[Rfam]
RNA sequence: AGCCUCCUGAUGCUUACCACAGGCUGUGUUCUUACACUGACUGUAUAGAAAGAGGAGGUAGAGUAAACCUACUCCAUAUACGCCUCAGCUCAGGCCCUGUAUCUAGUCUGUAUUGUGAAUGGGGGAACAUAG
Numbered sequence: 001a002g003c004c005u006c007c008u009g010a011u012g013c014u015u016a017c018c019a020c021a022g023g024c025u026g027u028g029u030u031c032u033u034a035c036a037c038u039g040a041c042u043g044u045a046u047a048g049a050a051a052g053a054g055g056a057g058g059u060a061g062a063g064u065a066a067a068c069c070u071a072c073u074c075c076a077u078a079u080a081c082g083c084c085u086c087a088g089c090u091c092a093g094g095c096c097c098u099g100u101a102u103c104u105a106g107u108c109u110g111u112a113u114u115g116u117g118a119a120u121g122g123g124g125g126a127a128c129a130u131a132g
Stems, first nucleotide, its partner, number of pairs: 002059007020043003026037004072124006086110003090106001092104003